[Rfam]
RNA sequence: UUUCGCUUUAGCUAUUGCACUGUUUUGUCACUCUCUGUCAAUGAACAAAUUGUUCUUUGUCAGAGAGUGACAGAACAGUUCAAUAGCUAUAGCUUCCAGUAAC
Numbered sequence: 001u002u003u004c005g006c007u008u009u010a011g012c013u014a015u016u017g018c019a020c021u022g023u024u025u026u027g028u029c030a031c032u033c034u035c036u037g038u039c040a041a042u043g044a045a046c047a048a049a050u051u052g053u054u055c056u057u058u059g060u061c062a063g064a065g066a067g068u069g070a071c072a073g074a075a076c077a078g079u080u081c082a083a084u085a086g087c088u089a090u091a092g093c094u095u096c097c098a099g100u101a102a103c
Stems, first nucleotide, its partner, number of pairs: 006092002009089009019079005024064004029059002044054004
RNA: mir-8517 microRNA precursor family
Organism: Plutella xylostella